[Rfam]
RNA sequence: UUGUCGCGGGUAAGUCUUAUACGACCAGCUCCCACAGAAUCCCCCAGGCGAGGAAUCGAGCAAGGGUAUGUGGUCGUAGCGGUGCGAUAUAAGUAGCUUACCCAUUU
Numbered sequence: 001u002u003g004u005c006g007c008g009g010g011u012a013a014g015u016c017u018u019a020u021a022c023g024a025c026c027a028g029c030u031c032c033c034a035c036a037g038a039a040u041c042c043c044c045c046a047g048g049c050g051a052g053g054a055a056u057c058g059a060g061c062a063a064g065g066g067u068a069u070g071u072g073g074u075c076g077u078a079g080c081g082g083u084g085c086g087a088u089a090u091a092a093g094u095a096g097c098u099u100a101c102c103c104a105u106u107u
Stems, first nucleotide, its partner, number of pairs: 008103008017092005022086002024083002
RNA: Bacteroidales small SRP
Organism: Alistipes sp. An31A